[Rfam]
RNA sequence: ACGAUGUUCCGCUGCAGGUUCGACUGAUAAGAGCAUCUG
Numbered sequence: 001a002c003g004a005u006g007u008u009c010c011g012c013u014g015c016a017g018g019u020u021c022g023a024c025u026g027a028u029a030a031g032a033g034c035a036u037c038u039g
Stems, first nucleotide, its partner, number of pairs: 003037007013029002015026003
Ribosomal protein L19 leader: a 39-nucleotide sequence from Halalkalibacter hemicellulosilyticus. The literature on the family includes a 1994 paper in Prog Nucleic Acid Res Mol Biol by Zengel and Lindahl, "Diverse mechanisms for regulating ribosomal protein synthesis in Escherichia coli". It is annotated as a cis-regulatory leader.